This 70-nucleotide RNA sequence from Anopheles darlingi belongs to the Rfam family "mir-965 microRNA precursor family". The base pairs follow the family's consensus structure, which was predicted with RNAalifold.

[Rfam]
RNA sequence: UUCUGAAUGGGAAUGGUUGUGCGCUCUAUGUGCUAUGAAAUCAUAAGCGUAUAGCUUUUCCCAUUUAGCG
Numbered sequence: 001u002u003c004u005g006a007a008u009g010g011g012a013a014u015g016g017u018u019g020u021g022c023g024c025u026c027u028a029u030g031u032g033c034u035a036u037g038a039a040a041u042c043a044u045a046a047g048c049g050u051a052u053a054g055c056u057u058u059u060c061c062c063a064u065u066u067a068g069c070g
Base pairs, nucleotide, nucleotide: 003068004067005066006065007064009062010061011060013058017054018053019052020051021050024047025046027045028044029043030042

NCBI's taxonomy places the organism under Eukaryota, Neoptera, Endopterygota, Culicoidea, argyritarsis series. Gene Ontology terms of the family: miRNA-mediated post-transcriptional gene silencing and RISC complex.